RNA sequence: ACAAUAAGACUUCCGUAAUUCGCGGCCCGGCCAUAAAGAAGGCGGGGAGAUGAAAAUCUAUGG
Numbered sequence: 001a002c003a004a005u006a007a008g009a010c011u012u013c014c015g016u017a018a019u020u021c022g023c024g025g026c027c028c029g030g031c032c033a034u035a036a037a038g039a040a041g042g043c044g045g046g047g048a049g050a051u052g053a054a055a056a057u058c059u060a061u062g063g
Base pairs, nucleotide, nucleotide: 012060013025014024015023016022026047027046028045030043031042032041048059049058050057
The family of this 63-nucleotide sequence is "pemK RNA". It is one of the family's seed sequences. The family's RNA type in Rfam is cis-regulatory element. The family's consensus secondary structure is taken from published work.